[Rfam]
nrdJ RNA: an 81-nucleotide RNA from Streptomyces thermolilacinus. It is annotated as a small RNA. The sequence is in the family's curated seed alignment. The base pairs follow the family's consensus structure, which is taken from published work. Taxonomically the source falls in Streptomyces thermolilacinus (Bacteria, Actinomycetota, Actinomycetes, Kitasatosporales).
RNA sequence: ACCUGUCACGGGUGCUGCUCGCAGCGCUCACGACAACAGACGGAAACCGUGCCUUGGAAGAUCUGGGCACAUCAGGGUGUU
Numbered sequence: 001a002c003c004u005g006u007c008a009c010g011g012g013u014g015c016u017g018c019u020c021g022c023a024g025c026g027c028u029c030a031c032g033a034c035a036a037c038a039g040a041c042g043g044a045a046a047c048c049g050u051g052c053c054u055u056g057g058a059a060g061a062u063c064u065g066g067g068c069a070c071a072u073c074a075g076g077g078u079g080u081u
Base pairs, nucleotide, nucleotide: 004035005034006033007032010029011028012027013026014025015024016023049070050069051068052067053066054065056063